[Rfam]
RNA sequence: GGGGGUCAGGUGAUGAAUAAUAAUGCAUAGUUCAGAUGAAAAUAAUCUCCAUGAUUACAUUUUGUAGCAUAGUCUUUCGCUCCUAUCUGAUGACCCCC
Dot-bracket structure: ...(((((..................................................................................)))))...
This 98-nucleotide sequence from Brassica oleracea belongs to the Rfam family "Small nucleolar RNA snR60/Z15/Z230/Z193/J17".
Clan: SNORD77 clan.
The family's RNA type in Rfam is C/D-box small nucleolar RNA.
Pairs were carried over by alignment from the consensus structure.
The organism belongs to Brassica oleracea, within Eukaryota.
Its family is annotated with nucleolus and RNA processing in the Gene Ontology.